[Rfam]
Nucleotides: 097
Base pairs, nucleotide, nucleotide: 010022011021012020052087053086054085055084056078057077059075060074061073063071064070
Number, partner (000 for none) and nucleotide at each position: 001000g002000g003000u004000u005000u006000c007000u008000a009000u010022u011021g012020g013000u014000g015000u016000a017000a018000a019000u020012c021011c022010a023000c024000g025000c026000a027000c028000c029000u030000c031000a032000a033000u034000u035000c036000a037000a038000g039000a040000u041000g042000a043000g044000a045000a046000a047000c048000c049000a050000u051000u052087u053086u054085c055084c056078a057077u058000u059075g060074g061073u062000a063071g064070c065000a066000a067000a068000u069000g070064g071063u072000g073061a074060u075059c076000c077057a078056u079000u080000a081000a082000g083000u084055g085054g086053a087052g088000a089000a090000a091000a092000u093000a094000u095000u096000a097000g